[Rfam]
The record is a 123-nucleotide sequence from Cavia porcellus, which matches "U4 spliceosomal RNA" in Rfam. The base pairs follow the family's consensus structure, which is taken from published work. Gene Ontology terms of the family: U4 snRNP and spliceosomal tri-snRNP complex assembly.

RNA sequence: AGCUUUGCACAGGGGCAAUAUCACAACCAAUGAGGUUUAUCUGAGGCAUGAUUAUUGUUGACUGAAAACUUUUACUAGGUAGAAGGUGCUUAAACAUCAGUCCUUGCUGUAUCCUCACUUGAG
Numbered sequence: 001a002g003c004u005u006u007g008c009a010c011a012g013g014g015g016c017a018a019u020a021u022c023a024c025a026a027c028c029a030a031u032g033a034g035g036u037u038u039a040u041c042u043g044a045g046g047c048a049u050g051a052u053u054a055u056u057g058u059u060g061a062c063u064g065a066a067a068a069c070u071u072u073u074a075c076u077a078g079g080u081a082g083a084a085g086g087u088g089c090u091u092a093a094a095c096a097u098c099a100g101u102c103c104u105u106g107c108u109g110u111a112u113c114c115u116c117a118c119u120u121g122a123g
Base pairs, nucleotide, nucleotide: 020052021051022050023049027046028045034042035041080109081108082107084105085104086103088101089100090099092097114123115122116121
It is annotated as a spliceosomal small nuclear RNA.